[Rfam]
This 73-nucleotide RNA from Bemisia tabaci belongs to the Rfam family "mir-219 microRNA precursor family". The literature on the family includes a 2003 paper in Science by Lim et al., "Vertebrate microRNA genes". A search with the family's covariance model found it, with a score of 56 bits. Rfam links the family to the GO terms RISC complex and miRNA-mediated post-transcriptional gene silencing. The organism belongs to Bemisia, within Eukaryota.
RNA sequence: UCAUGCUUUGAUUGUCCAAACGCAAUUCUUGUUGAUAAUUGAUCAAGGGUUGAGUAAGGACAUCAACGUUCGA
Numbered sequence: 001u002c003a004u005g006c007u008u009u010g011a012u013u014g015u016c017c018a019a020a021c022g023c024a025a026u027u028c029u030u031g032u033u034g035a036u037a038a039u040u041g042a043u044c045a046a047g048g049g050u051u052g053a054g055u056a057a058g059g060a061c062a063u064c065a066a067c068g069u070u071c072g073a
Stems, first nucleotide, its partner, number of pairs: 002072001005069002009065004014061004021054001023052009